RNA sequence: UUGACCGGUUCCAAACUGCCUGACGCACAGGCCGCAUAUGAAAGCGCCAACACAUUGCAGCCGACAGUUUUGGGUGGGGUGAAUUUCUCGCUCCACGCAG
Numbered sequence: 001u002u003g004a005c006c007g008g009u010u011c012c013a014a015a016c017u018g019c020c021u022g023a024c025g026c027a028c029a030g031g032c033c034g035c036a037u038a039u040g041a042a043a044g045c046g047c048c049a050a051c052a053c054a055u056u057g058c059a060g061c062c063g064a065c066a067g068u069u070u071u072g073g074g075u076g077g078g079g080u081g082a083a084u085u086u087c088u089c090g091c092u093c094c095a096c097g098c099a100g
Stems, first nucleotide, its partner, number of pairs: 003012001025032001034061002077098001079096002
Annotation
A member of the RNA family "Pyrrolysine insertion sequence mttB" from Ahrensia sp. R2A130, 100 nucleotides long. The base pairs follow the family's consensus structure, which was predicted with CMfinder. Its family is annotated with pyrrolysine incorporation in the Gene Ontology. The match comes from Rfam's covariance-model search (46 bits). Taxonomically the source falls in Ahrensia (Bacteria, Pseudomonadota, Alphaproteobacteria, Hyphomicrobiales). The literature on the family includes a 2013 paper in BMC Bioinformatics by Theil Have et al., "Effects of using coding potential, sequence conservation and mRNA structure conservation for predicting pyrroly-sine containing genes".